[Rfam]
RNA sequence: CUGCAUUCCGGGACUCUUCUUGUGACUUGUGCUGUGUUCCUGUCACAUCACAGGCAGAGUUCUAGCUAUGCGG
Numbered sequence: 001c002u003g004c005a006u007u008c009c010g011g012g013a014c015u016c017u018u019c020u021u022g023u024g025a026c027u028u029g030u031g032c033u034g035u036g037u038u039c040c041u042g043u044c045a046c047a048u049c050a051c052a053g054g055c056a057g058a059g060u061u062c063u064a065g066c067u068a069u070g071c072g073g
Stems, first nucleotide, its partner, number of pairs: 004070003008065001010063007020053006029046003